RNA sequence: AGCAACGGAAAAGCGCCUGAGCUCUCGGAGAACUUCUUCGGGAGCUGACGAGGAUGGGGUUUAUCGAGUUUUCGGCGGAUGCCCCACGGUGGACUGCCACCGUAAGAGGCCUACAAAACCGGUGAGCGAUCGCCGGGACAAAGGGGUCCUCAGCAGAAUU
Numbered sequence: 001a002g003c004a005a006c007g008g009a010a011a012a013g014c015g016c017c018u019g020a021g022c023u024c025u026c027g028g029a030g031a032a033c034u035u036c037u038u039c040g041g042g043a044g045c046u047g048a049c050g051a052g053g054a055u056g057g058g059g060u061u062u063a064u065c066g067a068g069u070u071u072u073c074g075g076c077g078g079a080u081g082c083c084c085c086a087c088g089g090u091g092g093a094c095u096g097c098c099a100c101c102g103u104a105a106g107a108g109g110c111c112u113a114c115a116a117a118a119c120c121g122g123u124g125a126g127c128g129a130u131c132g133c134c135g136g137g138a139c140a141a142a143g144g145g146g147u148c149c150u151c152a153g154c155a156g157a158a159u160u
Base pairs, nucleotide, nucleotide: 020046021045022044023043024042025041026040027039029037055086056085057084058083059082064075065074066073067072087102088101089100090099091098092097106151107150108149109148111146112145119136120135121134122133123132124131125130
RNA: glmS glucosamine-6-phosphate activated ribozyme aptamer